[Rfam]
RNA sequence: GUGAUACUCAAAUGUGGGGGCACUCUCCUGGACCUCAUGUGGAAAGUGCUAUGACAUUUGGGUCUCAC
Numbered sequence: 001g002u003g004a005u006a007c008u009c010a011a012a013u014g015u016g017g018g019g020g021c022a023c024u025c026u027c028c029u030g031g032a033c034c035u036c037a038u039g040u041g042g043a044a045a046g047u048g049c050u051a052u053g054a055c056a057u058u059u060g061g062g063u064c065u066c067a068c
Stems, first nucleotide, its partner, number of pairs: 004065001006063007014055002017052001019050006026043003